The family of this 270-nucleotide RNA sequence from Staphylococcus sp. HGB0015 is "Bacterial large signal recognition particle RNA".
Clan: SRP clan.
The source organism's lineage runs through Bacteria, Bacillota, Bacilli, Staphylococcaceae and Staphylococcus.
On this family, see Rosenblad et al., Nucleic Acids Res 2003: "SRPDB: Signal Recognition Particle Database".
From the family's description: The signal recognition particle (SRP) is a universally conserved ribonucleoprotein involved in the co-translational targeting of proteins to membranes.
Rfam classes the family as a non-coding RNA gene.
Its family is annotated with SRP-dependent cotranslational protein targeting to membrane, signal sequence recognition and signal recognition particle, plasma membrane targeting in the Gene Ontology.
RNA sequence: CCGUGCUAAGCGGGGAGGUAGCGGUUCCCUAUUCUCGAAAUCCGCUUUAUGCGAGGUCGAAUUCCUUUGUCGCGGAUAUGUAUUUGUGAAGUCUGCCCAGAGCACGAGGUGUUUGAAGAUUUCGGUCCUAUGCAAUAUGAACCCAUGAACCAUGUCAGGUCCUGACGGAAGCAGCAUUAAGUGGAUUCUCAUAUGUGCCGUAGGGUAGCCGAGAUUUAGCUGUCGACUCUGGUAACGUUUGUGAUGCGUAUUCUACACAAAGGUGCACGG
Dot-bracket structure: ((((((...((((((((.(...).))))))...((((.(..........).))))))......(((((((...(((((.(((((.(((((...((..(((((...(((((.......(((((((((((((((((.((((((.((((.....((((....(((....)))....))))...)))).)..)))))))...))))))...)))))))))..))).))..))))).))...)))))))))).)))))...))))))).))))))
Numbered sequence: 001c002c003g004u005g006c007u008a009a010g011c012g013g014g015g016a017g018g019u020a021g022c023g024g025u026u027c028c029c030u031a032u033u034c035u036c037g038a039a040a041u042c043c044g045c046u047u048u049a050u051g052c053g054a055g056g057u058c059g060a061a062u063u064c065c066u067u068u069g070u071c072g073c074g075g076a077u078a079u080g081u082a083u084u085u086g087u088g089a090a091g092u093c094u095g096c097c098c099a100g101a102g103c104a105c106g107a108g109g110u111g112u113u114u115g116a117a118g119a120u121u122u123c124g125g126u127c128c129u130a131u132g133c134a135a136u137a138u139g140a141a142c143c144c145a146u147g148a149a150c151c152a153u154g155u156c157a158g159g160u161c162c163u164g165a166c167g168g169a170a171g172c173a174g175c176a177u178u179a180a181g182u183g184g185a186u187u188c189u190c191a192u193a194u195g196u197g198c199c200g201u202a203g204g205g206u207a208g209c210c211g212a213g214a215u216u217u218a219g220c221u222g223u224c225g226a227c228u229c230u231g232g233u234a235a236c237g238u239u240u241g242u243g244a245u246g247c248g249u250a251u252u253c254u255a256c257a258c259a260a261a262g263g264u265g266c267a268c269g270g
Stems, first nucleotide, its partner, number of pairs: 001270006010057002012030006019023001034055004039050001064263007074253005080247005086242005094234002098231005106224002108221003118216009127204006133195002136193005141186001143184004152177004160169003